[Rfam]
RNA sequence: GACAGUAAACCGGUCAGGUGACCGGGACCGCCUUGAAAGCGGAGCGCACAUCCGUGUGUGGGGUUCGAUUCCUCUGCUGUC
Dot-bracket structure: (((((((..((((((....))))))..((((.......))))..(((((....))))).((((.......)))))))))))